[Rfam]
RNA sequence: UGGGAAGACACUGGAGGCAGCGGUUCAUCGAUCUCUUCCUGGCCGAUUUUUUGUUUAACACGAAAAACAUGAACCGAUCGAUAAACCUCUGCAUCCAGCGCUUCCUUU
Numbered sequence: 001u002g003g004g005a006a007g008a009c010a011c012u013g014g015a016g017g018c019a020g021c022g023g024u025u026c027a028u029c030g031a032u033c034u035c036u037u038c039c040u041g042g043c044c045g046a047u048u049u050u051u052u053g054u055u056u057a058a059c060a061c062g063a064a065a066a067a068c069a070u071g072a073a074c075c076g077a078u079c080g081a082u083a084a085a086c087c088u089c090u091g092c093a094u095c096c097a098g099c100g101c102u103u104c105c106u107u108u
Stems, first nucleotide, its partner, number of pairs: 013096003018091003022087004027082007036073003